RNA: Bacterial large subunit ribosomal RNA, nucleotides 1376 to 1845
RNA sequence: GAAUGACGAGUGAGAAACUCGUCCGCCGAAUGACCAAGGGUUCCUGGGCCAGGUUAAUCCGCCCAGGGUAAGUCGGGACCUAAGGCGAGGCCGACAGGCGUAGUCGAUGGACAACGGGUUGAUAUUCCCGUACCCGUGAAAGUUCGUCCCUGGUGAGGCCGGUGAUACUAACCGCCCGCGAAGCCUAGUAGCCUUCGGGCAAACGGUGGAGUGCGCGGGAUCUGAGCCGGUAGUAGCCAAGCGAUGGGGUGACGCAGGAGGGUAGCUCCGCCAGGCGUUGGUUGUCCUGGUGUAAGCGUGUAGGGAGUUUGGUAGGCAAAUCCGCCAAACACAUAUCCUGAGACGUGAUGCAUAGCCGAUUGAGGCGAAGUAGGGUGAUCCCAUGCUGCCGAGAAAAGCCUCUAGCGAGAACUUUCGUGGCCCGUACCCCAAACCGACACAGGUGGUCAGGUAGAGAAUACCAAGGCGAU
Numbered sequence: 001g002a003a004u005g006a007c008g009a010g011u012g013a014g015a016a017a018c019u020c021g022u023c024c025g026c027c028g029a030a031u032g033a034c035c036a037a038g039g040g041u042u043c044c045u046g047g048g049c050c051a052g053g054u055u056a057a058u059c060c061g062c063c064c065a066g067g068g069u070a071a072g073u074c075g076g077g078a079c080c081u082a083a084g085g086c087g088a089g090g091c092c093g094a095c096a097g098g099c100g101u102a103g104u105c106g107a108u109g110g111a112c113a114a115c116g117g118g119u120u121g122a123u124a125u126u127c128c129c130g131u132a133c134c135c136g137u138g139a140a141a142g143u144u145c146g147u148c149c150c151u152g153g154u155g156a157g158g159c160c161g162g163u164g165a166u167a168c169u170a171a172c173c174g175c176c177c178g179c180g181a182a183g184c185c186u187a188g189u190a191g192c193c194u195u196c197g198g199g200c201a202a203a204c205g206g207u208g209g210a211g212u213g214c215g216c217g218g219g220a221u222c223u224g225a226g227c228c229g230g231u232a233g234u235a236g237c238c239a240a241g242c243g244a245u246g247g248g249g250u251g252a253c254g255c256a257g258g259a260g261g262g263u264a265g266c267u268c269c270g271c272c273a274g275g276c277g278u279u280g281g282u283u284g285u286c287c288u289g290g291u292g293u294a295a296g297c298g299u300g301u302a303g304g305g306a307g308u309u310u311g312g313u314a315g316g317c318a319a320a321u322c323c324g325c326c327a328a329a330c331a332c333a334u335a336u337c338c339u340g341a342g343a344c345g346u347g348a349u350g351c352a353u354a355g356c357c358g359a360u361u362g363a364g365g366c367g368a369a370g371u372a373g374g375g376u377g378a379u380c381c382c383a384u385g386c387u388g389c390c391g392a393g394a395a396a397a398g399c400c401u402c403u404a405g406c407g408a409g410a411a412c413u414u415u416c417g418u419g420g421c422c423c424g425u426a427c428c429c430c431a432a433a434c435c436g437a438c439a440c441a442g443g444u445g446g447u448c449a450g451g452u453a454g455a456g457a458a459u460a461c462c463a464a465g466g467c468g469a470u
Stems, first nucleotide, its partner, number of pairs: 005023006024468004032448004038428002043067006052060002074424004079110002084105003088101001090099003114131005134420011241406002246402005254389004260382003265376004270291006292351002296346004303339003307330007315323002353368001355366003434443002450462004